Overview: Rfam assigns this 96-nucleotide RNA sequence from Agarivorans albus to the family "t44 RNA". NCBI's taxonomy places the organism under Bacteria, Pseudomonadati, Pseudomonadota, Alteromonadaceae, Agarivorans albus. From the family's description: This family consists of a number of bacterial RNA genes of between 135 and 170 bases in length. The t44 gene has been identified in several species of enteric bacteria but homologs have also been identified in Pseudomonas and Coxiella species. The t44 gene is found between the map and rpsB genes in all species in the full alignment apart from Shigella flexneri. Rfam classes the family as a small RNA.

[Rfam]
RNA sequence: AUAUUUAUAUUUUAAACACACACACACAUCGUCACGUUUUCCGGGGUGCUGGGCAAUUUGGUCUGGUCGGUAAAAUGGGAUGUGUGGAGGCCUAAC
Numbered sequence: 001a002u003a004u005u006u007a008u009a010u011u012u013u014a015a016a017c018a019c020a021c022a023c024a025c026a027c028a029u030c031g032u033c034a035c036g037u038u039u040u041c042c043g044g045g046g047u048g049c050u051g052g053g054c055a056a057u058u059u060g061g062u063c064u065g066g067u068c069g070g071u072a073a074a075a076u077g078g079g080a081u082g083u084g085u086g087g088a089g090g091c092c093u094a095a096c
Stems, first nucleotide, its partner, number of pairs: 023086008035077005041070003048067005